[Rfam]
A member of the RNA family "mir-8834 microRNA precursor family" from Vulpes vulpes, 104 nucleotides long. Rfam 15.1 lists 13,926 matches to the family in 17 species. It scores 65 bits against the family's covariance model. Gene Ontology terms of the family: RISC complex and miRNA-mediated post-transcriptional gene silencing.
Nucleotides: 104
Stems, first nucleotide, its partner, number of pairs: 002096004009088003012084002019077002021074002024071001027070009039057002
Number, partner (000 for none) and nucleotide at each position: 001000a002096g003095g004094a005093g006000g007000a008000a009088c010087g011086g012084c013083c014000a015000c016000a017000g018000u019077g020076g021074g022073g023000c024071g025000g026000c027070a028069g029068c030067u031066c032065u033064g034063g035062a036000a037000a038000c039057c040056u041000c042000g043000u044000u045000u046000c047000a048000g049000c050000c051000c052000c053000c054000g055000c056040a057039g058000u059000a060000a061000c062035u063034c064033c065032g066031g067030g068029g069028c070027u071024c072000u073022c074021c075000g076020u077019c078000u079000g080000c081000a082000g083013g084012g085000c086011c087010u088009g089000g090000a091000g092000g093005c094004u095003c096002c097000c098000g099000g100000g101000c102000g103000g104000g